[Rfam]
RNA sequence: UGCUUGUGAGGAACAAACAUCUUGUCUUAACCCCUCUUCUGGUCCCAGAGCUGGUAAAUGGUGAACACACUGGGGCUAACUGGGAGAGAGGACGAGAACUUGUCCCGUAAGGAACUGUCUGAGGUAC
Numbered sequence: 001u002g003c004u005u006g007u008g009a010g011g012a013a014c015a016a017a018c019a020u021c022u023u024g025u026c027u028u029a030a031c032c033c034c035u036c037u038u039c040u041g042g043u044c045c046c047a048g049a050g051c052u053g054g055u056a057a058a059u060g061g062u063g064a065a066c067a068c069a070c071u072g073g074g075g076c077u078a079a080c081u082g083g084g085a086g087a088g089a090g091g092a093c094g095a096g097a098a099c100u101u102g103u104c105c106c107g108u109a110a111g112g113a114a115c116u117g118u119c120u121g122a123g124g125u126a127c
Stems, first nucleotide, its partner, number of pairs: 001126004
Rfam assigns this 127-nucleotide RNA from Dasypus novemcinctus to the family "Small nucleolar RNA SNORD22". Rfam classes the family as a C/D-box small nucleolar RNA. Taxonomically the source falls in Dasypus (Eukaryota, Vertebrata, Euteleostomi, Xenarthra). It is one of the family's seed sequences.